RNA sequence: UCACAAGUUCAAGACCAUAGCAGAAGUGCUCACCGCACAGCCUGUCAGAUUCACUGAAAUCUAUGAAUUCUGCU
Number, nucleotide and partner (000 for none) at each position: 001u000002c000003a000004c000005a000006a000007g000008u000009u000010c000011a000012a000013g042014a000015c040016c000017a000018u000019a074020g073021c072022a071023g070024a069025a068026g038027u037028g036029c000030u000031c000032a000033c000034c000035g000036c028037a027038c026039a000040g015041c000042c013043u000044g000045u000046c000047a062048g061049a060050u059051u058052c000053a000054c000055u000056g000057a000058a051059a050060u049061c048062u047063a000064u000065g000066a000067a000068u025069u024070c023071u022072g021073c020074u019
The family of this 74-nucleotide RNA sequence from Alligator sinensis is "Mammalian CPEB3 ribozyme". NCBI's taxonomy places the organism under Eukaryota, Vertebrata, Tetrapoda, Amniota, Alligator.